[Rfam]
RNA sequence: UCAGGCUCUGAUUGUCCAAACGCAAUUCUUGUACGAUUUUAUCAAGAAGUGUGUGUGGACAUCAUCGCUUGG
Numbered sequence: 001u002c003a004g005g006c007u008c009u010g011a012u013u014g015u016c017c018a019a020a021c022g023c024a025a026u027u028c029u030u031g032u033a034c035g036a037u038u039u040u041a042u043c044a045a046g047a048a049g050u051g052u053g054u055g056u057g058g059a060c061a062u063c064a065u066c067g068c069u070u071g072g
Base pairs, nucleotide, nucleotide: 002071003070004069005068006067009064010063011062012061014060015059016058017057018056021053022052023051024050026048027047028046029045030044031043